[Rfam]
RNA sequence: CUCUAUGGUGCAACUACCUUCUCUGCUGUGAGGAGUGUAGACAAUUCAGCCAUGCAACAACAAACCAGCAGAGUUAACAGGGCCACCAGUCUCUCAAGAACAGGCUGAGUCGGUAGUAUAAUACUCUGACACUU
Numbered sequence: 001c002u003c004u005a006u007g008g009u010g011c012a013a014c015u016a017c018c019u020u021c022u023c024u025g026c027u028g029u030g031a032g033g034a035g036u037g038u039a040g041a042c043a044a045u046u047c048a049g050c051c052a053u054g055c056a057a058c059a060a061c062a063a064a065c066c067a068g069c070a071g072a073g074u075u076a077a078c079a080g081g082g083c084c085a086c087c088a089g090u091c092u093c094u095c096a097a098g099a100a101c102a103g104g105c106u107g108a109g110u111c112g113g114u115a116g117u118a119u120a121a122u123a124c125u126c127u128g129a130c131a132c133u134u
Stems, first nucleotide, its partner, number of pairs: 004054005018035006070127004082114002086109001087107006
Small nucleolar RNA U109: a 134-nucleotide sequence from Hucho hucho. Its family is annotated with RNA processing and nucleolus in the Gene Ontology. A reference for the family is Gu et al. (2005), "A novel experimental approach for systematic identification of box H/ACA snoRNAs from eukaryotes", Nucleic Acids Res. Pairs were carried over by alignment from the consensus structure, which was predicted with WAR. Rfam classes the family as an H/ACA-box small nucleolar RNA.